[Rfam]
RNA sequence: UGUAGGUACAGGUAGCAAUACGCUGUAUACUCGUGUAAUCGAAUUAACGUUUAAGCGAACUGUAAGCUCGCCGACCACGAGGCCAUAAUAUCGCCCCUAGAAGUAAUCACCUGAUCAGUGAUGAAACUAGGGGUAUUUUUUAU
Numbered sequence: 001u002g003u004a005g006g007u008a009c010a011g012g013u014a015g016c017a018a019u020a021c022g023c024u025g026u027a028u029a030c031u032c033g034u035g036u037a038a039u040c041g042a043a044u045u046a047a048c049g050u051u052u053a054a055g056c057g058a059a060c061u062g063u064a065a066g067c068u069c070g071c072c073g074a075c076c077a078c079g080a081g082g083c084c085a086u087a088a089u090a091u092c093g094c095c096c097c098u099a100g101a102a103g104u105a106a107u108c109a110c111c112u113g114a115u116c117a118g119u120g121a122u123g124a125a126a127c128u129a130g131g132g133g134u135a136u137u138u139u140u141u142a143u
Base pairs, nucleotide, nucleotide: 007027008026009025010024011023012021013020014019030081031080032079033078034077035076039074040073041072042051043050044049055071056070057069058068060066094133095132096131097130098129099128100127
RNA: DUF3800-I RNA